[Rfam]
RNA sequence: CCAUUUACUUCUUUAAAUCACACACAUUCCGACACGUGUUCCGGGGUGCCUUUGAUGAAAAAGUUCAAAGGUCGGAUGCAUGGGGGAUGUGGAGGCCUAAC
Numbered sequence: 001c002c003a004u005u006u007a008c009u010u011c012u013u014u015a016a017a018u019c020a021c022a023c024a025c026a027u028u029c030c031g032a033c034a035c036g037u038g039u040u041c042c043g044g045g046g047u048g049c050c051u052u053u054g055a056u057g058a059a060a061a062a063g064u065u066c067a068a069a070g071g072u073c074g075g076a077u078g079c080a081u082g083g084g085g086g087a088u089g090u091g092g093a094g095g096c097c098u099a100a101c
Stems, first nucleotide, its partner, number of pairs: 023091008035082005040076004048072007
RNA: t44 RNA
Organism: Vibrio ruber